RNA sequence: AUUGGUCGUCUCCAGUUUUGUCAUUUAUCAUUAUAGGUCAUAUGGGACUUUUUUCUACACAAAAUAGGUUCCAUAAUUCCUACAGUGAAUUGACCCACUACAGAAAUGAUAGAGCC
Numbered sequence: 001a002u003u004g005g006u007c008g009u010c011u012c013c014a015g016u017u018u019u020g021u022c023a024u025u026u027a028u029c030a031u032u033a034u035a036g037g038u039c040a041u042a043u044g045g046g047a048c049u050u051u052u053u054u055c056u057a058c059a060c061a062a063a064a065u066a067g068g069u070u071c072c073a074u075a076a077u078u079c080c081u082a083c084a085g086u087g088a089a090u091u092g093a094c095c096c097a098c099u100a101c102a103g104a105a106a107u108g109a110u111a112g113a114g115c116c
Stems, first nucleotide, its partner, number of pairs: 001032001003030004015024002035050005067116005073110002076107003080103001084099004
Overview
This 116-nucleotide RNA from Streptococcus sp. DD10 belongs to the Rfam family "Streptococcus RNA 266". The family has 4 seed sequences and 223 matches in Rfam 15.1.